RNA: MIR1120/MIR1122 microRNA precursor family
Organism: Triticum aestivum
RNA sequence: GUACUCCCUCCGUCCCAUAAUAUAAGAUCGUUUUUCAAACUAACAUAGCUUGAAAAACGAUCUUAUAUUAUGGGACGGAGGCAGUAC
Numbered sequence: 001g002u003a004c005u006c007c008c009u010c011c012g013u014c015c016c017a018u019a020a021u022a023u024a025a026g027a028u029c030g031u032u033u034u035u036c037a038a039a040c041u042a043a044c045a046u047a048g049c050u051u052g053a054a055a056a057a058c059g060a061u062c063u064u065a066u067a068u069u070a071u072g073g074g075a076c077g078g079a080g081g082c083a084g085u086a087c
Base pairs, nucleotide, nucleotide: 003085004084005083007081008080009079010078011077013075014074015073016072017071019069020068021067022066023065024064025063026062027061028060029059030058031057032056033055034054035053036052037051038050040048041047